Overview: A member of the RNA family "Small nucleolar RNA SNORD103/SNORD85" from Arenaria interpres, 85 nucleotides long. By type it is a C/D-box small nucleolar RNA. NCBI's taxonomy places the organism under Eukaryota, Opisthokonta, Sauria, Saurischia, Arenaria. The family has 41 seed sequences and 1,349 matches in Rfam 15.1.
RNA sequence: UCUGGCGAUGAUGACACACUUGCCCUCACUGAGAACAGCGUUCGAUAAUGAGCCUCAACCAAGCGCUCAAAUGAGCUGAGCCAGA
Numbered sequence: 001u002c003u004g005g006c007g008a009u010g011a012u013g014a015c016a017c018a019c020u021u022g023c024c025c026u027c028a029c030u031g032a033g034a035a036c037a038g039c040g041u042u043c044g045a046u047a048a049u050g051a052g053c054c055u056c057a058a059c060c061a062a063g064c065g066c067u068c069a070a071a072u073g074a075g076c077u078g079a080g081c082c083a084g085a
Stems, first nucleotide, its partner, number of pairs: 001085006